[Rfam]
RNA sequence: AAAAAGGGCUUCUGCUGUGAGUGGCACAUGGAGAGAGAUGGCUGCGGCUUUAUCUUUUUCUAUGCGGAAUCGCUAUCAAGAGAUUUCGGAAGCGUAAUUUUUGUUCCAGGGGUAGCUGGUAAUCGCUUGUUCCGGUUCCCCG
Numbered sequence: 001a002a003a004a005a006g007g008g009c010u011u012c013u014g015c016u017g018u019g020a021g022u023g024g025c026a027c028a029u030g031g032a033g034a035g036a037g038a039u040g041g042c043u044g045c046g047g048c049u050u051u052a053u054c055u056u057u058u059u060c061u062a063u064g065c066g067g068a069a070u071c072g073c074u075a076u077c078a079a080g081a082g083a084u085u086u087c088g089g090a091a092g093c094g095u096a097a098u099u100u101u102u103g104u105u106c107c108a109g110g111g112g113u114a115g116c117u118g119g120u121a122a123u124c125g126c127u128u129g130u131u132c133c134g135g136u137u138c139c140c141c142g
Base pairs, nucleotide, nucleotide: 008093009092010091011090012089013026014025015024016023017022027064028063029062030061031060032059033058034057035056036055037054038053039052040051041050065088066087067086068085069084070083071082110140111139112138115136116135117134118133119132121131122130123129
Rfam assigns this 142-nucleotide RNA from Phrynocephalus forsythii to the family "U11 spliceosomal RNA". Lineage of the source: Eukaryota > Teleostomi > Sauria > Acrodonta > Phrynocephalus. It is annotated as a spliceosomal small nuclear RNA. The family is grouped with related families in Rfam's "U1 clan". The match comes from Rfam's covariance-model search (109 bits).